[Rfam]
RNA sequence: GAUGAGAGGUCCCCGCGGUAGGGGCCUGUGAACCUGGUCAGGGCGAAAGCAGCAGCCAUAAGCAGUAACCUCUAGGUGUGGUGGGCCUCUCAUCAGG
Numbered sequence: 001g002a003u004g005a006g007a008g009g010u011c012c013c014c015g016c017g018g019u020a021g022g023g024g025c026c027u028g029u030g031a032a033c034c035u036g037g038u039c040a041g042g043g044c045g046a047a048a049g050c051a052g053c054a055g056c057c058a059u060a061a062g063c064a065g066u067a068a069c070c071u072c073u074a075g076g077u078g079u080g081g082u083g084g085g086c087c088u089c090u091c092a093u094c095a096g097g
Stems, first nucleotide, its partner, number of pairs: 004091005010084002013081003016076001019074005026065004035058004043050002
Dot-bracket structure: ...(((((.((.((((..(((((..((((.....((((....((....))....))))...))))....))))).)..))).))..)))))......
The family of this 97-nucleotide RNA is "Bacterial small signal recognition particle RNA". It scores 50 bits against the family's covariance model. It is annotated as a non-coding RNA gene. Pairs were carried over by alignment from the consensus structure, which is taken from published work.